[Rfam]
RNA sequence: GCAUAGUGAUGAUAAUUCAAACCUGUCCGAUCAAUUUAAUGACUGGAAUAACAACCUCCUACUCAUACUGA
Numbered sequence: 001g002c003a004u005a006g007u008g009a010u011g012a013u014a015a016u017u018c019a020a021a022c023c024u025g026u027c028c029g030a031u032c033a034a035u036u037u038a039a040u041g042a043c044u045g046g047a048a049u050a051a052c053a054a055c056c057u058c059c060u061a062c063u064c065a066u067a068c069u070g071a
Base pairs, nucleotide, nucleotide: 006066007065008064009063028046031041
Small nucleolar RNA Z105: a 71-nucleotide sequence from Cucurbita maxima.
By type it is a C/D-box small nucleolar RNA.
NCBI's taxonomy places the organism under Eukaryota, Tracheophyta, eudicotyledons, Cucurbitaceae, Cucurbita.
A reference for the family is Chen et al. (2003), "The high diversity of snoRNAs in plants: identification and comparative study of 120 snoRNA genes from Oryza sativa", Nucleic Acids Res.
The match comes from Rfam's covariance-model search (49 bits).